Background: A member of the RNA family "small Cajal body-specific RNA 17" from Saimiri boliviensis, 139 nucleotides long.
RNA sequence: CUCUCCGGUCCCCAUUGCAGCCCCCAGAUGAGCCCACAGUAUUUUCCUUAUAUGAUCAGGUCCCAUGGCGGGCCGCUUGCCCGGAGCCUGAGAGGAUUAUGAAAACGUGGCGAGCGGAGUGGUGCGGGGGGACCCGGAG
Numbered sequence: 001c002u003c004u005c006c007g008g009u010c011c012c013c014a015u016u017g018c019a020g021c022c023c024c025c026a027g028a029u030g031a032g033c034c035c036a037c038a039g040u041a042u043u044u045u046c047c048u049u050a051u052a053u054g055a056u057c058a059g060g061u062c063c064c065a066u067g068g069c070g071g072g073c074c075g076c077u078u079g080c081c082c083g084g085a086g087c088c089u090g091a092g093a094g095g096a097u098u099a100u101g102a103a104a105a106c107g108u109g110g111c112g113a114g115c116g117g118a119g120u121g122g123u124g125c126g127g128g129g130g131g132a133c134c135c136g137g138a139g
Base pairs, nucleotide, nucleotide: 001139002138003137005136007134008133009132010131011130012129013128020125021124023122024121056091057090058089059088060087061086063084064083068080069079070078071077072076

NCBI's taxonomy places the organism under Eukaryota, Eutheria, Simiiformes, Cebidae, Saimiri boliviensis. Rfam links the family to the GO terms Cajal body, RNA processing and nucleolus. On this family, see Tycowski et al., Curr Biol 2004: "Guide RNAs with 5' Caps and Novel Box C/D snoRNA-like Domains for Modification of snRNAs in Metazoa". A search with the family's covariance model found it, with a score of 137 bits. From the family's description: scaRNAs are a specific class of small nuclear RNAs which localise to the Cajal bodies and guide the modification of RNA polymerase II transcribed spliceosomal RNAs U1, U2, U4, U5 and U12. The complete human U12-22/U4-8 scaRNA is composed of two tandem C/D box domains (termed U12-22 and U4-8).